[Rfam]
RNA sequence: AGAUAUUCUACAGGGUCGACCUUAGACCACAUGAAGAUAUUAUGUAUGCCUAAGCUAUACAAUUCAUGUGUUCUCAGGUCGCCCCUGCUGAAUUUUC
Numbered sequence: 001a002g003a004u005a006u007u008c009u010a011c012a013g014g015g016u017c018g019a020c021c022u023u024a025g026a027c028c029a030c031a032u033g034a035a036g037a038u039a040u041u042a043u044g045u046a047u048g049c050c051u052a053a054g055c056u057a058u059a060c061a062a063u064u065c066a067u068g069u070g071u072u073c074u075c076a077g078g079u080c081g082c083c084c085c086u087g088c089u090g091a092a093u094u095u096u097c
Stems, first nucleotide, its partner, number of pairs: 007091002011087004017081003024074003028070005

MIR398 microRNA precursor family: a 97-nucleotide RNA from Trifolium subterraneum. A reference for the family is Sunkar and Zhu (2004), "Novel and stress-regulated microRNAs and other small RNAs from Arabidopsis", Plant Cell. It scores 72 bits against the family's covariance model. The organism belongs to Trifolium, within Eukaryota. Pairs were carried over by alignment from the consensus structure, which was predicted with WAR. The family has 14 seed sequences and 627 matches in Rfam 15.1.